Rfam assigns this 73-nucleotide sequence from Geotrypetes seraphini to the family "Small nucleolar RNA SNORD47". Pairs were carried over by alignment from the consensus structure, which was predicted with ILM. It scores 64 bits against the family's covariance model. NCBI's taxonomy places the organism under Eukaryota, Bilateria, Euteleostomi, Sarcopterygii, Geotrypetes. On this family, see Galardi et al., Mol Cell Biol 2002: "Purified box C/D snoRNPs are able to reproduce site-specific 2'-O-methylation of target RNA in vitro". Rfam classes the family as a C/D-box small nucleolar RNA.
[Rfam]
RNA sequence: AACCAGUGAUGAAUACUGAUUCUGCCAUAUGAAUCACACUGAUUUUAUUUCUUACCGUUCCAUUUCUGAGGUU
Number, nucleotide and partner (000 for none) at each position: 001a073002a072003c071004c070005a000006g000007u000008g000009a000010u000011g000012a000013a000014u000015a000016c000017u000018g000019a000020u000021u000022c000023u000024g000025c000026c000027a000028u000029a000030u000031g000032a000033a000034u000035c000036a000037c000038a000039c000040u000041g000042a000043u000044u000045u000046u000047a000048u000049u000050u000051c000052u000053u000054a000055c000056c000057g000058u000059u000060c000061c000062a000063u000064u000065u000066c000067u000068g000069a000070g004071g003072u002073u001